[Rfam]
RNA sequence: GCCCUGUGGUUCCUGGAAUCUGUUAUUCUGUGCAGCUUUCCAGGCUUGGAAAAAGGGCAUAGAUUAAUUCUGUGAUUUUUGCGUGGAGCCUGUUUAUUUACAUGUCAGUCUCCAUAGCCCGGUCACAGGAACAUUU
Numbered sequence: 001g002c003c004c005u006g007u008g009g010u011u012c013c014u015g016g017a018a019u020c021u022g023u024u025a026u027u028c029u030g031u032g033c034a035g036c037u038u039u040c041c042a043g044g045c046u047u048g049g050a051a052a053a054a055g056g057g058c059a060u061a062g063a064u065u066a067a068u069u070c071u072g073u074g075a076u077u078u079u080u081g082c083g084u085g086g087a088g089c090c091u092g093u094u095u096a097u098u099u100a101c102a103u104g105u106c107a108g109u110c111u112c113c114a115u116a117g118c119c120c121g122g123u124c125a126c127a128g129g130a131a132c133a134u135u136u
Stems, first nucleotide, its partner, number of pairs: 001058004007049001012044006020035004070128001072126006081118002083115004088110001090108003094104001

A member of the RNA family "Small nucleolar RNA SNORA84" from Megalops atlanticus, 136 nucleotides long. Rfam 15.1 lists 757 matches to the family in 629 species. Pairs were carried over by alignment from the consensus structure, which was predicted with WAR. On this family, see Marker et al., Curr Biol 2002: "Experimental RNomics: identification of 140 candidates for small non-messenger RNAs in the plant Arabidopsis thaliana".